[Rfam]
RNA sequence: GUAGAGACUAGAGUCUCAUCUUGACACACAUUAUUGUCUUGGUGUGCUUGAGUCCUCUUAGAGUAAAGACUGGUCCUAUUCACCGACUGGCCUCCUCUGUAGUCCAGUCACCCACAUGGGCAGUUACAAGC
Numbered sequence: 001g002u003a004g005a006g007a008c009u010a011g012a013g014u015c016u017c018a019u020c021u022u023g024a025c026a027c028a029c030a031u032u033a034u035u036g037u038c039u040u041g042g043u044g045u046g047c048u049u050g051a052g053u054c055c056u057c058u059u060a061g062a063g064u065a066a067a068g069a070c071u072g073g074u075c076c077u078a079u080u081c082a083c084c085g086a087c088u089g090g091c092c093u094c095c096u097c098u099g100u101a102g103u104c105c106a107g108u109c110a111c112c113c114a115c116a117u118g119g120g121c122a123g124u125u126a127c128a129a130g131c
Base pairs, nucleotide, nucleotide: 003058004057005056006055007053008052009051012048013047015046017044018043019042020041023038024037025036026035070123071122072121074119075118085109086108088106089105090104092102093101
A member of the RNA family "Small nucleolar RNA SNORA3/SNORA45 family" from Acanthochromis polyacanthus, 131 nucleotides long. A reference for the family is Gu et al. (2005), "A novel experimental approach for systematic identification of box H/ACA snoRNAs from eukaryotes", Nucleic Acids Res. It scores 71 bits against the family's covariance model. The family's RNA type in Rfam is H/ACA-box small nucleolar RNA. Rfam links the family to the GO terms RNA processing and nucleolus.